[Rfam]
RNA sequence: CGGGGCUGAGUAUUACACCAGGUACUGGUGCCCUCACGACGACCGGUAUCUGUGUCAUACUUUUCCCUU
Numbered sequence: 001c002g003g004g005g006c007u008g009a010g011u012a013u014u015a016c017a018c019c020a021g022g023u024a025c026u027g028g029u030g031c032c033c034u035c036a037c038g039a040c041g042a043c044c045g046g047u048a049u050c051u052g053u054g055u056c057a058u059a060c061u062u063u064u065c066c067c068u069u
Stems, first nucleotide, its partner, number of pairs: 002068004009061004015055004021050009
mir-12 microRNA precursor family: a 69-nucleotide RNA from Cloeon dipterum. Pairs were carried over by alignment from the consensus structure, which was predicted with RNAalifold. The source organism's lineage runs through Eukaryota, Metazoa, Bilateria, Baetidae and Cloeon.